Overview: This 129-nucleotide sequence from Mauremys mutica belongs to the Rfam family "U8 small nucleolar RNA". A search with the family's covariance model found it, with a score of 99 bits. The base pairs follow the family's consensus structure, which is taken from published work. Taxonomically the source falls in Mauremys (Eukaryota, Bilateria, Geoemydidae, Geoemydinae). A reference for the family is Peculis et al. (2001), "The U8 snoRNA gene family: identification and characterization of distinct, functional U8 genes in Xenopus", Gene. Rfam 15.1 lists 1,597 matches to the family in 457 species.
[Rfam]
RNA sequence: UCGUCAGUGAGGUACAUCCUUACCUGUUCCCCCGCCGGGGGGCAGCACAUGAUGAUCGGAGAGCGCAUGAGACGUGAUUAGAGUCUCCGCGGCCGCGGUCCGCAACGCCGCGGCUCGCUCCUGUCUGAA
Numbered sequence: 001u002c003g004u005c006a007g008u009g010a011g012g013u014a015c016a017u018c019c020u021u022a023c024c025u026g027u028u029c030c031c032c033c034g035c036c037g038g039g040g041g042g043c044a045g046c047a048c049a050u051g052a053u054g055a056u057c058g059g060a061g062a063g064c065g066c067a068u069g070a071g072a073c074g075u076g077a078u079u080a081g082a083g084u085c086u087c088c089g090c091g092g093c094c095g096c097g098g099u100c101c102g103c104a105a106c107g108c109c110g111c112g113g114c115u116c117g118c119u120c121c122u123g124u125c126u127g128a129a
Stems, first nucleotide, its partner, number of pairs: 024045003028042006069087002072084002075080001089118002091115007